[Rfam]
Shown here is a 125-nucleotide RNA sequence from Duffyella gerundensis, a member of the family "Histidine operon leader". The base pairs follow the family's consensus structure, which is taken from published work. A search with the family's covariance model found it, with a score of 117 bits. About the family: At least 6 amino acid operons are known to be regulated by attenuation. In each a leader sequence of 150-200 bp is found upstream of the first gene in the operon. This leader sequence can assume two different secondary structures known as the terminator and the anti-terminator structure. In each case the leader also codes for very short peptide sequence that is rich in the end product amino acid of the operon. The terminator structure is recognised as a termination signal for RNA polymerase and the operon is not transcribed. This structure forms when the cell has an excess of the regulatory amino acid and ribosome movement over the leader transcript is not impeded. When there is a deficiency of the charged tRNA of the regulatory amino acid the ribosome translating the leader peptide stalls and the antiterminator structure can form. This allows RNA polymerase to transcribe the operon. In the Rfam alignment the consensus structure is of the terminator structure.

RNA sequence: CCAUCAUCACCAUCACCCUGACUAGUCUUUCAGGCGAUGAGUGCUGGAAGACGUUUAGGAUCUUCCAGUGGCGCGAACAACGCAAAGAGAGCCCCCGGAAGAUUAUCUUCCGGGGGUUUUUUUAU
Numbered sequence: 001c002c003a004u005c006a007u008c009a010c011c012a013u014c015a016c017c018c019u020g021a022c023u024a025g026u027c028u029u030u031c032a033g034g035c036g037a038u039g040a041g042u043g044c045u046g047g048a049a050g051a052c053g054u055u056u057a058g059g060a061u062c063u064u065c066c067a068g069u070g071g072c073g074c075g076a077a078c079a080a081c082g083c084a085a086a087g088a089g090a091g092c093c094c095c096c097g098g099a100a101g102a103u104u105a106u107c108u109u110c111c112g113g114g115g116g117u118u119u120u121u122u123u124a125u
Stems, first nucleotide, its partner, number of pairs: 008043003011039004017034005044068008086122016